[Rfam]
RNA: Small nucleolar RNA R30/Z108
Organism: Lathyrus oleraceus
RNA sequence: AGUGAUCGCGAUGAAGAUAGAUAAGCUCCCUCUUCUGAAAUUUCAAAUUGAGGAAACUGGCUGGCUGAAUCGAACCUUAAAUCUUAUCGCCACCACUGAGCGA
Numbered sequence: 001a002g003u004g005a006u007c008g009c010g011a012u013g014a015a016g017a018u019a020g021a022u023a024a025g026c027u028c029c030c031u032c033u034u035c036u037g038a039a040a041u042u043u044c045a046a047a048u049u050g051a052g053g054a055a056a057c058u059g060g061c062u063g064g065c066u067g068a069a070u071c072g073a074a075c076c077u078u079a080a081a082u083c084u085u086a087u088c089g090c091c092a093c094c095a096c097u098g099a100g101c102g103a
Base pairs, nucleotide, nucleotide: 006103007102008101009100